[Rfam]
Rfam assigns this 36-nucleotide RNA from Lipotes vexillifer to the family "Iron response element I".
RNA sequence: CAGAUUCUUACUUCAACAGUGCUUGGACGGAACCCG
Numbered sequence: 001c002a003g004a005u006u007c008u009u010a011c012u013u014c015a016a017c018a019g020u021g022c023u024u025g026g027a028c029g030g031a032a033c034c035c036g
Base pairs, nucleotide, nucleotide: 001036003034005032006031007030008029012027013026014025015024016023017021
Record summary:
On this family, see Hentze et al., Science 1987: "Identification of the iron-responsive element for the translational regulation of human ferritin mRNA". It scores 38 bits against the family's covariance model.